Rfam assigns this 385-nucleotide RNA from Pantoea sp. Mhis to the family "Bacterial RNase P class A". The family's RNA type in Rfam is ribozyme. A search with the family's covariance model found it, with a score of 319 bits. About the family: Ribonuclease P (RNase P) is a ubiquitous endoribonuclease, found in archaea, bacteria and eukarya as well as chloroplasts and mitochondria.

RNA sequence: AGAACUAGGAUAGACAGUCGCCUAUUUGAAAUUUAAUUUUUCUAAAUUAUAUUAAAAUAAUAGGAGGAAAGUCCGGGCUCCAUAGGGCAAGGUGCCAGGUAACACCUGGGAAGUGUGAACUUACGACUAGUGCAACAGAGAGUAAACCGCCGAAGAUUAAUUAAUAAAAUCAGGCAAGGGUGAAAGGGUGCGGUAAGAGCGCACCGCGCGACUGGUAACAGUCGCGGCAAGGUAAACUCCACCUGGAGCAAGACCAAAUAGGAGCUUAUGUAAAGUAUGGCCCAUACUAAAAGAGCUCGGGUAGGUUGCUUGAACCAGUAAGUAAUUGCUGGUCUAGAUGAAUGACUGUCCACGACAGAACCCGGCUUAUUGAUCAGUUCUAAUU
Numbered sequence: 001a002g003a004a005c006u007a008g009g010a011u012a013g014a015c016a017g018u019c020g021c022c023u024a025u026u027u028g029a030a031a032u033u034u035a036a037u038u039u040u041u042c043u044a045a046a047u048u049a050u051a052u053u054a055a056a057a058u059a060a061u062a063g064g065a066g067g068a069a070a071g072u073c074c075g076g077g078c079u080c081c082a083u084a085g086g087g088c089a090a091g092g093u094g095c096c097a098g099g100u101a102a103c104a105c106c107u108g109g110g111a112a113g114u115g116u117g118a119a120c121u122u123a124c125g126a127c128u129a130g131u132g133c134a135a136c137a138g139a140g141a142g143u144a145a146a147c148c149g150c151c152g153a154a155g156a157u158u159a160a161u162u163a164a165u166a167a168a169a170u171c172a173g174g175c176a177a178g179g180g181u182g183a184a185a186g187g188g189u190g191c192g193g194u195a196a197g198a199g200c201g202c203a204c205c206g207c208g209c210g211a212c213u214g215g216u217a218a219c220a221g222u223c224g225c226g227g228c229a230a231g232g233u234a235a236a237c238u239c240c241a242c243c244u245g246g247a248g249c250a251a252g253a254c255c256a257a258a259u260a261g262g263a264g265c266u267u268a269u270g271u272a273a274a275g276u277a278u279g280g281c282c283c284a285u286a287c288u289a290a291a292a293g294a295g296c297u298c299g300g301g302u303a304g305g306u307u308g309c310u311u312g313a314a315c316c317a318g319u320a321a322g323u324a325a326u327u328g329c330u331g332g333u334c335u336a337g338a339u340g341a342a343u344g345a346c347u348g349u350c351c352a353c354g355a356c357a358g359a360a361c362c363c364g365g366c367u368u369a370u371u372g373a374u375c376a377g378u379u380c381u382a383a384u385u
Stems, first nucleotide, its partner, number of pairs: 001381006008375002011372001012370001013350007021064006069368003073365005078248004085283004090244005095109005110124001111122004125239002130237002132233002147179002149175003154170001157167003187205006206228001207226008252307004262298006274288005314333008